The family of this 82-nucleotide RNA sequence from Medicago truncatula is "Small nucleolar RNA Z102/R77". Lineage of the source: Eukaryota > Tracheophyta > eudicotyledons > Gunneridae > Medicago. The literature on the family includes a 2001 paper in J Mol Biol by Barneche et al., "Identification of 66 box C/D snoRNAs in Arabidopsis thaliana: extensive gene duplications generated multiple isoforms predicting new ribosomal RNA 2'-O-methylation sites". Its family is annotated with nucleolus and RNA processing in the Gene Ontology. A search with the family's covariance model found it, with a score of 80 bits. Clan: SNORD44 clan.
RNA sequence: GAAUGAAAUGAUGAUUUAUUAUUUCCCUAUUGGUUUGAUAGCCUGGAUGAUGGCAUUUUGUAUUAGCUCUAUCUGACCAUUC
Numbered sequence: 001g002a003a004u005g006a007a008a009u010g011a012u013g014a015u016u017u018a019u020u021a022u023u024u025c026c027c028u029a030u031u032g033g034u035u036u037g038a039u040a041g042c043c044u045g046g047a048u049g050a051u052g053g054c055a056u057u058u059u060g061u062a063u064u065a066g067c068u069c070u071a072u073c074u075g076a077c078c079a080u081u082c
Stems, first nucleotide, its partner, number of pairs: 002081004037054001042053002